[Rfam]
RNA sequence: UUCUUAUUAAGAGGAGCGGAGGGACUGGCCCAAUGACGCUUCAGCAACCCCACUUAGGUGGAAGGUGCUAAUUCCUGCAGGAGAUGAAGAUCCUGGAUGAUAAGAG
Numbered sequence: 001u002u003c004u005u006a007u008u009a010a011g012a013g014g015a016g017c018g019g020a021g022g023g024a025c026u027g028g029c030c031c032a033a034u035g036a037c038g039c040u041u042c043a044g045c046a047a048c049c050c051c052a053c054u055u056a057g058g059u060g061g062a063a064g065g066u067g068c069u070a071a072u073u074c075c076u077g078c079a080g081g082a083g084a085u086g087a088a089g090a091u092c093c094u095g096g097a098u099g100a101u102a103a104g105a106g
Base pairs, nucleotide, nucleotide: 001106002105003104004103005102006101007100008099013042014041015040016039017038021031022030023029025077027075028074043069044068045067046066048065049064050061051060052059053058078095079094080093081092082091
Dot-bracket structure: ((((((((....(((((...(((.[.[[)))......)))))((((.((((((....))))..))))))....]].](((((........)))))...))))))))